[Rfam]
RNA sequence: CCGUGCUAGAUGGGGAGGUAGCGGUGCCCUGUAACUCGCAAUCCGCUGUAGCGAGGUUGAAUUCCUAUUAGAGGUCUUGUCGAUGUGAGGUUUGGUCCUUGCAGUCAAUGUUGACGGCUGGGUCCUCCGCAAUGAGUAACUGUGAACCUGGUCAGGUCCGGAAGGAAGCAGCCAUAAGCAGUCUCACUCUUGUGCCGGAGGGUGGCCUAGCCCGAGUUGAUCUGCAAGGGUGCCGCUUGGAUCGCAAUGAUCGAUAAUAGGUGCACGG
Numbered sequence: 001c002c003g004u005g006c007u008a009g010a011u012g013g014g015g016a017g018g019u020a021g022c023g024g025u026g027c028c029c030u031g032u033a034a035c036u037c038g039c040a041a042u043c044c045g046c047u048g049u050a051g052c053g054a055g056g057u058u059g060a061a062u063u064c065c066u067a068u069u070a071g072a073g074g075u076c077u078u079g080u081c082g083a084u085g086u087g088a089g090g091u092u093u094g095g096u097c098c099u100u101g102c103a104g105u106c107a108a109u110g111u112u113g114a115c116g117g118c119u120g121g122g123u124c125c126u127c128c129g130c131a132a133u134g135a136g137u138a139a140c141u142g143u144g145a146a147c148c149u150g151g152u153c154a155g156g157u158c159c160g161g162a163a164g165g166a167a168g169c170a171g172c173c174a175u176a177a178g179c180a181g182u183c184u185c186a187c188u189c190u191u192g193u194g195c196c197g198g199a200g201g202g203u204g205g206c207c208u209a210g211c212c213c214g215a216g217u218u219g220a221u222c223u224g225c226a227a228g229g230g231u232g233c234c235g236c237u238u239g240g241a242u243c244g245c246a247a248u249g250a251u252c253g254a255u256a257a258u259a260g261g262u263g264c265a266c267g268g
Stems, first nucleotide, its partner, number of pairs: 001268006009058003012030004017025001019023001035055005064261007073252004081244004086239004093232002097229006105220001107218003116212008124201006130192002134189004139182005149174004157166003
Shown here is a 268-nucleotide RNA from Paenibacillus zeisoli, a member of the family "Bacterial large signal recognition particle RNA". About the family: The signal recognition particle (SRP) is a universally conserved ribonucleoprotein involved in the co-translational targeting of proteins to membranes. The family is grouped with related families in Rfam's "SRP clan". On this family, see Rosenblad et al., Nucleic Acids Res 2003: "SRPDB: Signal Recognition Particle Database". Rfam classes the family as a non-coding RNA gene. Its family is annotated with SRP-dependent cotranslational protein targeting to membrane, signal sequence recognition and signal recognition particle, plasma membrane targeting in the Gene Ontology.